About this RNA: MIR9563 microRNA precursor family: a 125-nucleotide RNA sequence from Brassica napus.

RNA sequence: AGAAUAUAAGAACACAUCUCUUAACUUUUAACUAAAAAAGCUAAAACCCAGUUAUUAAAUAAGAUAUUUAAGAACUGGGUCUUAGCUUUUUUAGUUAAAACUCAAAAGACAGGUUCUUGUACUCC
Number, nucleotide and partner (000 for none) at each position: 001a000002g124003a123004a000005u121006a120007u119008a118009a117010g116011a115012a114013c113014a000015c000016a000017u109018c108019u107020c000021u105022u104023a000024a102025c000026u100027u099028u098029u097030a096031a095032c094033u093034a092035a091036a090037a089038a088039a087040g000041c085042u084043a083044a082045a000046a080047c079048c000049c000050a000051g000052u000053u000054a000055u000056u000057a000058a000059a000060u000061a000062a000063g000064a000065u000066a000067u000068u000069u000070a000071a000072g000073a000074a000075c000076u000077g000078g000079g047080u046081c000082u044083u043084a042085g041086c000087u039088u038089u037090u036091u035092u034093a033094g032095u031096u030097a029098a028099a027100a026101c000102u024103c000104a022105a021106a000107a019108g018109a017110c000111a000112g000113g013114u012115u011116c010117u009118u008119g007120u006121a005122c000123u003124c002125c000
Its family is annotated with miRNA-mediated post-transcriptional gene silencing and RISC complex in the Gene Ontology. Rfam 15.1 lists 5,832 matches to the family in 9 species. The match comes from Rfam's covariance-model search (96 bits). The family's consensus secondary structure was predicted with RNAalifold.